[Rfam]
RNA sequence: AAAGGCCGUCCGCGGCCGGGGCAGAACGCUUGCCCCGUCGCCAGAGCAACAAAGCAAGCAUUCUGCCAGGCCGCUCACGCUGCCCGC
Numbered sequence: 001a002a003a004g005g006c007c008g009u010c011c012g013c014g015g016c017c018g019g020g021g022c023a024g025a026a027c028g029c030u031u032g033c034c035c036c037g038u039c040g041c042c043a044g045a046g047c048a049a050c051a052a053a054g055c056a057a058g059c060a061u062u063c064u065g066c067c068a069g070g071c072c073g074c075u076c077a078c079g080c081u082g083c084c085c086g087c
Stems, first nucleotide, its partner, number of pairs: 004084003012074006020067007028059006037050002040047002
A member of the RNA family "mir-9195 microRNA precursor family" from Cnephaeus nilssonii, 87 nucleotides long. Taxonomically the source falls in Cnephaeus (Eukaryota, Eumetazoa, Bilateria, Gnathostomata). Pairs were carried over by alignment from the consensus structure, which was predicted with RNAalifold.